RNA sequence: AUCGUGGGACGACCCACGUCCAGCAAGAACGUGGGACGACCCAC
Numbered sequence: 001a002u003c004g005u006g007g008g009a010c011g012a013c014c015c016a017c018g019u020c021c022a023g024c025a026a027g028a029a030c031g032u033g034g035g036a037c038g039a040c041c042c043a044c
Base pairs, nucleotide, nucleotide: 003018004017005016006015007014008013031044032043033042034041035040

This 44-nucleotide sequence from Senna tora belongs to the Rfam family "Guanidine-II riboswitch aptamer (mini-ykkC)". Simpler in structure and has fewer highly conserved nucleotide positions than the ykkC-yxkD leader. The match comes from Rfam's covariance-model search (33 bits). Its family is annotated with regulation of gene expression in the Gene Ontology. Lineage of the source: Eukaryota > Viridiplantae > Gunneridae > Caesalpinioideae > Senna.